[Rfam]
A member of the RNA family "mir-16 microRNA precursor family" from Volvox africanus, 83 nucleotides long. Gene Ontology terms of the family: miRNA-mediated post-transcriptional gene silencing and RISC complex. The family has 14 seed sequences and 4,705 matches in Rfam 15.1.

RNA sequence: UGCACGCAGCAGCAGCACAGAAAUAGAAAUGGAAAAAAUAUAUUACUUUUUCCAUUUCUAUUUCUGUGCUGCUGCUGCGUGCA
Numbered sequence: 001u002g003c004a005c006g007c008a009g010c011a012g013c014a015g016c017a018c019a020g021a022a023a024u025a026g027a028a029a030u031g032g033a034a035a036a037a038a039u040a041u042a043u044u045a046c047u048u049u050u051u052c053c054a055u056u057u058c059u060a061u062u063u064c065u066g067u068g069c070u071g072c073u074g075c076u077g078c079g080u081g082c083a
Stems, first nucleotide, its partner, number of pairs: 001083003005079003011073008020063001022062008